[Rfam]
RNA sequence: UAUAGAAAAAGGCAAACCUAUUGAAAAAUAGGGACGCAAAGUCACAGGUCUAAGGUAAUGAAUAAAAAUUACUAUGAUGGCUGGGCUGCCUGG
Numbered sequence: 001u002a003u004a005g006a007a008a009a010a011g012g013c014a015a016a017c018c019u020a021u022u023g024a025a026a027a028a029u030a031g032g033g034a035c036g037c038a039a040a041g042u043c044a045c046a047g048g049u050c051u052a053a054g055g056u057a058a059u060g061a062a063u064a065a066a067a068a069u070u071a072c073u074a075u076g077a078u079g080g081c082u083g084g085g086c087u088g089c090c091u092g093g
Base pairs, nucleotide, nucleotide: 012037013036017032018031019030020029021028022027040087041086042085043084045083046082047081048078049077050076055072056071057070058069
RNA: c-di-GMP-I riboswitch aptamer